[Rfam]
Notes:
This 138-nucleotide sequence from Carlito syrichta belongs to the Rfam family "Small nucleolar RNA SNORA43".

RNA sequence: GCUGUCCUGGAUCUGCCAGCACCACAGGCACAGCUGCUCGGCUGUGCCUGUGACAUCGGGGCACAGAGAAAGUGGCUAUUUCUACGCUCAGUGUUCAGAAACCCAUGAACACUAAGAAUGGUUUGUAGCCUGACAUUU
Numbered sequence: 001g002c003u004g005u006c007c008u009g010g011a012u013c014u015g016c017c018a019g020c021a022c023c024a025c026a027g028g029c030a031c032a033g034c035u036g037c038u039c040g041g042c043u044g045u046g047c048c049u050g051u052g053a054c055a056u057c058g059g060g061g062c063a064c065a066g067a068g069a070a071a072g073u074g075g076c077u078a079u080u081u082c083u084a085c086g087c088u089c090a091g092u093g094u095u096c097a098g099a100a101a102c103c104c105a106u107g108a109a110c111a112c113u114a115a116g117a118a119u120g121g122u123u124u125g126u127a128g129c130c131u132g133a134c135a136u137u138u
Base pairs, nucleotide, nucleotide: 003063004062005061006060007059008058009057010056024051025050026049027048074130075129076128082121083120084119087116088115092111093110094109095108096107097106
Rfam classes the family as an H/ACA-box small nucleolar RNA.
Lineage of the source: Eukaryota > Metazoa > Amniota > Euarchontoglires > Carlito.
Rfam describes the family as follows. ACA43 is a member of the H/ACA class of snoRNA that guide the sites of modification of uridines to pseudouridines.
Its Rfam clan is "SNORA17 clan".